[Rfam]
RNA sequence: CUUGAUGGAGCCCAGCCACAGCGGCCGGUCCUCGGGCCGGUCCUGGCCGUAGGUGGCGAUGAGGGCCUGGGCCUC
Numbered sequence: 001c002u003u004g005a006u007g008g009a010g011c012c013c014a015g016c017c018a019c020a021g022c023g024g025c026c027g028g029u030c031c032u033c034g035g036g037c038c039g040g041u042c043c044u045g046g047c048c049g050u051a052g053g054u055g056g057c058g059a060u061g062a063g064g065g066c067c068u069g070g071g072c073c074u075c
Stems, first nucleotide, its partner, number of pairs: 015025003031071003038065001044059001047056003
RNA: ASpks TB sRNA
Organism: Streptomyces sp. NRRL WC-3618